The family of this 314-nucleotide RNA sequence from Methanohalophilus mahii is "Archaeal signal recognition particle RNA". For this family Rfam cites "Towards the structure of the mammalian signal recognition particle" (Wild et al., Curr Opin Struct Biol, 2002). The source organism's lineage runs through Archaea, Methanomicrobia, Methanosarcinales, Methanohalophilus and Methanohalophilus mahii. Rfam classes the family as a non-coding RNA gene. The family's consensus secondary structure is taken from published work. The match comes from Rfam's covariance-model search (206 bits).
[Rfam]
RNA sequence: UGGCAGGCUAGUCUGGGUAGGCCGGCGUUACCUGUAACUCGAAAUCGCCGAUAUGCGGGAGACGAAGCUGAAGGAAGCCACCAGGAUCAUUUUCAAGCCUGUGAUCUCAACUAAGAAACUCCGUCCUGUUUGGAUGAUGUUGCUAGAGAGGUUGGUUGGAGAAUCGGCCCUCUAUCUUUACCGCGGAAACCGGUCGAGGCCCGGAAGGGAGCAGACUUACCGCGAACAUACAUCGCUCUCAGGGUUGCGGGGUGGAGGCGAGGCCGCAGUCCACUGGAAAAUGAGAAUGGUGGCAACCUGAAGCAUGCCUGCCA
Numbered sequence: 001u002g003g004c005a006g007g008c009u010a011g012u013c014u015g016g017g018u019a020g021g022c023c024g025g026c027g028u029u030a031c032c033u034g035u036a037a038c039u040c041g042a043a044a045u046c047g048c049c050g051a052u053a054u055g056c057g058g059g060a061g062a063c064g065a066a067g068c069u070g071a072a073g074g075a076a077g078c079c080a081c082c083a084g085g086a087u088c089a090u091u092u093u094c095a096a097g098c099c100u101g102u103g104a105u106c107u108c109a110a111c112u113a114a115g116a117a118a119c120u121c122c123g124u125c126c127u128g129u130u131u132g133g134a135u136g137a138u139g140u141u142g143c144u145a146g147a148g149a150g151g152u153u154g155g156u157u158g159g160a161g162a163a164u165c166g167g168c169c170c171u172c173u174a175u176c177u178u179u180a181c182c183g184c185g186g187a188a189a190c191c192g193g194u195c196g197a198g199g200c201c202c203g204g205a206a207g208g209g210a211g212c213a214g215a216c217u218u219a220c221c222g223c224g225a226a227c228a229u230a231c232a233u234c235g236c237u238c239u240c241a242g243g244g245u246u247g248c249g250g251g252g253u254g255g256a257g258g259c260g261a262g263g264c265c266g267c268a269g270u271c272c273a274c275u276g277g278a279a280a281a282u283g284a285g286a287a288u289g290g291u292g293g294c295a296a297c298c299u300g301a302a303g304c305a306u307g308c309c310u311g312c313c314a
Stems, first nucleotide, its partner, number of pairs: 001314008011063004015033006038059004043054001067304003072299003077294005087284008096275002099269005105263004111257002118253007125243004132236001133234004137229003142176001144174005150169008182224005192217004200209003